A member of the RNA family "Gammaprotebacteria rimP leader" from Enterobacillus tribolii, 102 nucleotides long.
A search with the family's covariance model found it, with a score of 95 bits.
RNA sequence: AGACCGUUUGGCAGUACAUGGGUCCAGUUGCACAAAGCCCCGAAUUUUCGGGGUUUUUUGUUAUCUGACAACAGAAUCACUGGGCUAUAAGGCCCUUUUUUU
Numbered sequence: 001a002g003a004c005c006g007u008u009u010g011g012c013a014g015u016a017c018a019u020g021g022g023u024c025c026a027g028u029u030g031c032a033c034a035a036a037g038c039c040c041c042g043a044a045u046u047u048u049c050g051g052g053g054u055u056u057u058u059u060g061u062u063a064u065c066u067g068a069c070a071a072c073a074g075a076a077u078c079a080c081u082g083g084g085c086u087a088u089a090a091g092g093c094c095c096u097u098u099u100u101u102u
Base pairs, nucleotide, nucleotide: 034057035056036055037054038053039052040051041050042049082095083094084093085092